Shown here is an 81-nucleotide RNA from Erinaceus europaeus, a member of the family "Small nucleolar RNA U105B". On this family, see Yang et al., Nucleic Acids Res 2006: "snoSeeker: an advanced computational package for screening of guide and orphan snoRNA genes in the human genome". The family has 13 seed sequences and 132 matches in Rfam 15.1. The match comes from Rfam's covariance-model search (50 bits). The base pairs follow the family's consensus structure, which was predicted with WAR. NCBI's taxonomy places the organism under Eukaryota, Metazoa, Vertebrata, Sarcopterygii, Erinaceus.
RNA sequence: GAUUUUGUGGUUGACAACACCAUGUCUGGCUGAACCCCUGUGAUUGUUCAGUCUCAAAGGAAAUGCCCAGCUGCACACUGG
Numbered sequence: 001g002a003u004u005u006u007g008u009g010g011u012u013g014a015c016a017a018c019a020c021c022a023u024g025u026c027u028g029g030c031u032g033a034a035c036c037c038c039u040g041u042g043a044u045u046g047u048u049c050a051g052u053c054u055c056a057a058a059g060g061a062a063a064u065g066c067c068c069a070g071c072u073g074c075a076c077a078c079u080g081g
Base pairs, nucleotide, nucleotide: 006075007074008073009072010021012019013018030051031050032049033048034047